[Rfam]
RNA: Bacterial large signal recognition particle RNA
Organism: Paenisporosarcina cavernae
Nucleotides: 268
Stems, first nucleotide, its partner, number of pairs: 001268006009058003012030004017025001019023001035055005064261005070256002074252001076250003081246003085243007095233002100229004107223002109220003118214002122210004126203006132194002135192004140185001142183004151176004159168003
Number, partner (000 for none) and nucleotide at each position: 001268c002267c003266g004265u005264g006263c007000u008000a009058g010057g011056u012030g013029g014028g015027a016000a017025g018000g019023u020000a021000g022000c023019g024000g025017u026000g027015u028014c029013u030012u031000g032000u033000a034000a035055c036054u037053c038052g039051c040000a041000a042000u043000c044000c045000g046000c047000u048000c049000u050000a051039g052038c053037g054036a055035g056011a057010c058009u059000g060000a061000a062000c063000u064261c065260c066259u067258u068257c069000u070256c071255u072000g073000a074252g075000g076250c077249g078248a079000u080000u081246a082245g083244a084000u085243a086242u087241g088240u089239a090238g091237g092000g093000u094000c095233u096232g097000a098000c099000u100229u101228a102227u103226g104000c105000a106000c107223g108222u109220a110219g111218u112000g113000u114000u115000g116000a117000c118214g119213u120000c121000u122210g123209g124208g125207u126203c127202c128201u129200g130199c131198g132194c133193a134000a135192u136191g137190a138189g139000u140185a141000c142183c143182c144181a145180u146000g147000a148000a149000c150000c151176a152175u153174g154173u155000c156000a157000g158000g159168u160167c161166c162000g163000g164000a165000a166161g167160g168159a169000a170000g171000c172000a173154g174153c175152a176151u177000u178000a179000a180145g181144u182143g183142g184000u185140u186000u187000u188000u189138c190137u191136c192135a193133u194132g195000u196000g197000c198131c199130g200129c201128a202127g203126g204000g205000u206000u207125a208124c209123c210122u211000u212000c213119a214118c215000u216000g217000a218111g219110c220109u221000a222108a223107c224000g225000a226103c227102a228101u229100a230000u231000g232096u233095a234000g235000c236000g237091c238090u239089u240088a241087u242086g243085u244083u245082c246081u247000u248078u249077c250076g251000a252074c253000g254000a255071a256070g257068g258067a259066a260065g261064g262000u263006g264005c265004a266003c267002g268001g